[Rfam]
RNA sequence: UAAGGGGGAGGAGAGACAAAUCUCUUAGUGUUGUUUCGUUUUGAAAGAACCGAGGUAGAACAAAUCUAAUGGCCGAGAUAUUGUUUCAGUCCUCAUUCUUUGUUUGAUGAUUUGAUUGUCGCUUGUUUCUUU
Numbered sequence: 001u002a003a004g005g006g007g008g009a010g011g012a013g014a015g016a017c018a019a020a021u022c023u024c025u026u027a028g029u030g031u032u033g034u035u036u037c038g039u040u041u042u043g044a045a046a047g048a049a050c051c052g053a054g055g056u057a058g059a060a061c062a063a064a065u066c067u068a069a070u071g072g073c074c075g076a077g078a079u080a081u082u083g084u085u086u087c088a089g090u091c092c093u094c095a096u097u098c099u100u101u102g103u104u105u106g107a108u109g110a111u112u113u114g115a116u117u118g119u120c121g122c123u124u125g126u127u128u129c130u131u132u
Stems, first nucleotide, its partner, number of pairs: 006042004011037001013034001015032004071128002074125004080116004089111003093107003098102001
Overview
Small nucleolar RNA snoR111: a 132-nucleotide RNA sequence from Populus trichocarpa. Pairs were carried over by alignment from the consensus structure, which was predicted with WAR. On this family, see Marker et al., Curr Biol 2002: "Experimental RNomics: identification of 140 candidates for small non-messenger RNAs in the plant Arabidopsis thaliana". A search with the family's covariance model found it, with a score of 56 bits. By type it is an H/ACA-box small nucleolar RNA.